[Rfam]
RNA sequence: UAUCGUCGCUGAAUUAGAGAUCGGCGAACGAUGUAUCGUUAACUUGCUUUUCUAGGAGUAAAAAAUGUCUCUAAGCGUAGAACAAAAAGCUGCAAUCGUUGCAGAAUUCGGUCGUGAUGCA
Numbered sequence: 001u002a003u004c005g006u007c008g009c010u011g012a013a014u015u016a017g018a019g020a021u022c023g024g025c026g027a028a029c030g031a032u033g034u035a036u037c038g039u040u041a042a043c044u045u046g047c048u049u050u051u052c053u054a055g056g057a058g059u060a061a062a063a064a065a066u067g068u069c070u071c072u073a074a075g076c077g078u079a080g081a082a083c084a085a086a087a088a089g090c091u092g093c094a095a096u097c098g099u100u101g102c103a104g105a106a107u108u109c110g111g112u113c114g115u116g117a118u119g120c121a
Stems, first nucleotide, its partner, number of pairs: 007026006051075001053073001055072004
Dot-bracket structure: ......((((((........))))))........................(.(.((((..........))))).)..............................................

The record is a 121-nucleotide RNA sequence from Actinobacillus succinogenes, which matches "Ribosomal S15 leader" in Rfam. It is annotated as a cis-regulatory leader. Lineage of the source: Bacteria > Gammaproteobacteria > Pasteurellaceae > Actinobacillus > Actinobacillus succinogenes. Its Rfam clan is "Ribosomal Protein S15 Leader clan". Rfam's curators write: The E. coli Ribosomal S15 gene 5' UTR can form two alternative structures. One that is a series of three hairpins, The other includes a pseudoknot. This structure causes translational regulation of the S15 protein. The alignment of this family contains only the final two hairpins which are conserved in other species, and also includes the complete region that forms the alternate structures. The literature on the family includes a 1996 paper in Biochimie by Benard et al., "Pseudoknot and translational control in the expression of the S15 ribosomal protein".